[Rfam]
RNA: Nematode snoRNA ceN39
Organism: Nippostrongylus brasiliensis
Nucleotides: 127
Base pairs, nucleotide, nucleotide: 003053004052005051006050007049011043012042015040016039017038018037019036020035021034022033023032024031025030065119066118067117068116069115070112075111076110077109079105080104082102083101084100085099087097088096089095
Number, partner (000 for none) and nucleotide at each position: 001000a002000u003053g004052g005051c006050g007049g008000a009000u010000a011043g012042g013000a014000a015040c016039c017038a018037g019036g020035c021034a022033g023032u024031a025030u026000c027000a028000c029000u030025g031024u032023a033022u034021u035020g036019c037018u038017u039016g040015g041000g042012c043011c044000g045000a046000a047000a048000a049007c050006c051005g052004c053003c054000a055000a056000a057000a058000u059000a060000a061000a062000u063000g064000g065119a066118g067117u068116g069115u070112u071000c072000c073000a074000a075111g076110g077109u078000c079105g080104u081000a082102u083101g084100u085099a086000u087097u088096a089095c090000c091000u092000c093000g094000c095089g096088u097087a098000c099085u100084a101083u102082g103000u104080a105079u106000a107000u108000c109077a110076c111075c112070a113000g114000a115069a116068u117067a118066u119065u120000c121000g122000a123000c124000a125000u126000u127000c